[Rfam]
The family of this 103-nucleotide RNA from Thalictrum thalictroides is "Small nucleolar RNA Z221/R21b". The base pairs follow the family's consensus structure, which was predicted with WAR. The match comes from Rfam's covariance-model search (61 bits). The organism belongs to Thalictrum, within Eukaryota. A reference for the family is Chen et al. (2003), "The high diversity of snoRNAs in plants: identification and comparative study of 120 snoRNA genes from Oryza sativa", Nucleic Acids Res. It is annotated as a C/D-box small nucleolar RNA.

RNA sequence: GAAUUUGCUAUGAUGAUGAUACAGUCAUGCACCACUCUGAAAUUGAUUUGAUCAAUUAUACUGUGCUGAUUAUUGACUCUACCCAUUUUUUGUCUGAGCAUUC
Dot-bracket structure: ((((...............................................................................................))))